Description
Rfam assigns this 92-nucleotide RNA from Prunus armeniaca to the family "MIR6288 microRNA precursor family". Pairs were carried over by alignment from the consensus structure, which was predicted with RNAalifold.

RNA sequence: CUAAAACUAAACACUUGUCAUUUUCUAAUUAGUUCUUAGUGUGUUAAAAUUUUCCGAGAACCAAUUAGAAAUUUACAAGUUGCUAGUUUUGG
Number, nucleotide and partner (000 for none) at each position: 001c000002u091003a090004a089005a088006a087007c086008u085009a084010a000011a000012c000013a080014c079015u078016u077017g076018u075019c000020a073021u000022u071023u070024u069025c068026u067027a066028a065029u064030u063031a000032g061033u060034u059035c058036u057037u056038a000039g054040u000041g000042u000043g000044u000045u000046a000047a000048a000049a000050u000051u000052u000053u000054c039055c000056g037057a036058g035059a034060a033061c032062c000063a030064a029065u028066u027067a026068g025069a024070a023071a022072u000073u020074u000075a018076c017077a016078a015079g014080u013081u000082g000083c000084u009085a008086g007087u006088u005089u004090u003091g002092g000
Rfam links the family to the GO terms RISC complex and miRNA-mediated post-transcriptional gene silencing.